[Rfam]
RNA sequence: GAUCAAUGAUGAAAGUAGUCAAACCUGAGCAUCAAAGGACCUUCCAAUGUGCUUUGAUGUAUGAGCUCCAUAAUGCUGAGA
Numbered sequence: 001g002a003u004c005a006a007u008g009a010u011g012a013a014a015g016u017a018g019u020c021a022a023a024c025c026u027g028a029g030c031a032u033c034a035a036a037g038g039a040c041c042u043u044c045c046a047a048u049g050u051g052c053u054u055u056g057a058u059g060u061a062u063g064a065g066c067u068c069c070a071u072a073a074u075g076c077u078g079a080g081a
Stems, first nucleotide, its partner, number of pairs: 029060005037050001039048001
This 81-nucleotide RNA sequence from Cricetulus griseus belongs to the Rfam family "Small nucleolar RNA U2-19".
It is annotated as a C/D-box small nucleolar RNA.